[Rfam]
RNA sequence: UGGUCAAUGAUGACAAGACCACUGCGCAAUCUGAGUUCUGGAAACCAGUGAUGGAGUGUGUUUGGACUGAGACCG
Numbered sequence: 001u002g003g004u005c006a007a008u009g010a011u012g013a014c015a016a017g018a019c020c021a022c023u024g025c026g027c028a029a030u031c032u033g034a035g036u037u038c039u040g041g042a043a044a045c046c047a048g049u050g051a052u053g054g055a056g057u058g059u060g061u062u063u064g065g066a067c068u069g070a071g072a073c074c075g
Base pairs, nucleotide, nucleotide: 002074003073004072005071038048039047040046041045
Overview: The family of this 75-nucleotide RNA sequence from Myotis brandtii is "small Cajal body-specific RNA 18". The literature on the family includes a 2002 paper in Mol Cell Biol by Galardi et al., "Purified box C/D snoRNPs are able to reproduce site-specific 2'-O-methylation of target RNA in vitro". scaRNAs are a specific class of small nuclear RNAs which localise to the Cajal bodies and guide the modification of RNA polymerase II transcribed spliceosomal RNAs U1, U2, U4, U5 and U12. This C/D box domain U91 (also known as U4-8) was identified by Darzacq and is predicted to guide the 2'O-ribose methylation of U4 snRNA C8. It scores 85 bits against the family's covariance model. It is annotated as a small Cajal body RNA. Gene Ontology terms of the family: nucleolus, RNA processing and Cajal body. The source organism's lineage runs through Eukaryota, Gnathostomata, Eutheria, Chiroptera and Myotis.